[Rfam]
RNA sequence: AUGAUCUUAUAGACUAACAGAAAUAUUGGAGCAUAAGCCACGAAAGCUUAUACUCCAAUAUUUCUGUUAGUCUAUAAGAUGCU
Numbered sequence: 001a002u003g004a005u006c007u008u009a010u011a012g013a014c015u016a017a018c019a020g021a022a023a024u025a026u027u028g029g030a031g032c033a034u035a036a037g038c039c040a041c042g043a044a045a046g047c048u049u050a051u052a053c054u055c056c057a058a059u060a061u062u063u064c065u066g067u068u069a070g071u072c073u074a075u076a077a078g079a080u081g082c083u
Stems, first nucleotide, its partner, number of pairs: 001083001005079003010076001011073008020063001022062008
The family of this 83-nucleotide sequence from Chelydra serpentina is "mir-16 microRNA precursor family". Pairs were carried over by alignment from the consensus structure, which was predicted with PFOLD. Gene Ontology terms of the family: RISC complex and miRNA-mediated post-transcriptional gene silencing. The match comes from Rfam's covariance-model search (37 bits). The family is grouped with related families in Rfam's "mir-15 clan".